[Rfam]
RNA sequence: CACCCUUGCAAUGGGCAAAGAGAUACCUUGGUGGUGGUGGUGGUGGUGUUCUUAUAUCAGCCAGGGGCAGAGAAGAUGCCAGUCCUUUGUUCCUCCUAGAUUGAUGCCUGUCUUGAUGGCCAAAGCUGUUUUAUGCCUAGGAUAAAAAU
Dot-bracket structure: ..((((((...(((...(((.(.((((..............)))).)...)))...)))..))))))....................(((((..........(.(...((...((.(.......).))...)).).)..))))).....
Rfam assigns this 149-nucleotide sequence from Mus musculus to the family "Small nucleolar RNA SNORA48". By type it is an H/ACA-box small nucleolar RNA. The family has 24 seed sequences and 2,109 matches in Rfam 15.1. Pairs were carried over by alignment from the consensus structure, which was predicted with RNAalifold. A search with the family's covariance model found it, with a score of 58 bits. Rfam's curators write: The snoRNA ACA 48 has been identified to guide pseudouridylation of the residue U3797 in the 28S rRNA subunit. On this family, see Ofengand and Bakin, J Mol Biol 1997: "Mapping to nucleotide resolution of pseudouridine residues in large subunit ribosomal RNAs from representative eukaryotes, prokaryotes, archaebacteria, mitochondria and chloroplasts".